[Rfam]
RNA sequence: CAUGUUAUUUGUACUUCAUCAGGUGCUCUGGUGAUAUGAUAUCCAGGCAACUGUUGGAGUGCAAUCCAUAUG
Numbered sequence: 001c002a003u004g005u006u007a008u009u010u011g012u013a014c015u016u017c018a019u020c021a022g023g024u025g026c027u028c029u030g031g032u033g034a035u036a037u038g039a040u041a042u043c044c045a046g047g048c049a050a051c052u053g054u055u056g057g058a059g060u061g062c063a064a065u066c067c068a069u070a071u072g
Stems, first nucleotide, its partner, number of pairs: 001072004010063003014059005020053002024049004030044002
The record is a 72-nucleotide RNA from Thrips palmi, which matches "mir-305 microRNA precursor family" in Rfam. For this family Rfam cites "Computational and transcriptional evidence for microRNAs in the honey bee genome" (Weaver et al., Genome Biol, 2007).